[Rfam]
RNA sequence: AUAAUGAUACUCCCGCCUUGAACGCGUCACAGCAUUGGGCGGCCUCACAGAAGGUGGGGAGGGUGAGAACCCUGUGG
Dot-bracket structure: ...........(((((((..................))))))((((((.....))))))(((........))))...
This 77-nucleotide RNA sequence from Ruthenibacterium lactatiformans belongs to the Rfam family "pemK RNA".
The organism belongs to Ruthenibacterium, within Bacteria.